RNA sequence: UGACAACUAUGACUAAAGGUUUCAUUUGUAUGUAAUAUAUUUAAUUACUAAAUGAAGACAAUAGUCCCUCUAAAUCAAUGUUGCCA
Numbered sequence: 001u002g003a004c005a006a007c008u009a010u011g012a013c014u015a016a017a018g019g020u021u022u023c024a025u026u027u028g029u030a031u032g033u034a035a036u037a038u039a040u041u042u043a044a045u046u047a048c049u050a051a052a053u054g055a056a057g058a059c060a061a062u063a064g065u066c067c068c069u070c071u072a073a074a075u076c077a078a079u080g081u082u083g084c085c086a
Stems, first nucleotide, its partner, number of pairs: 001086002004083004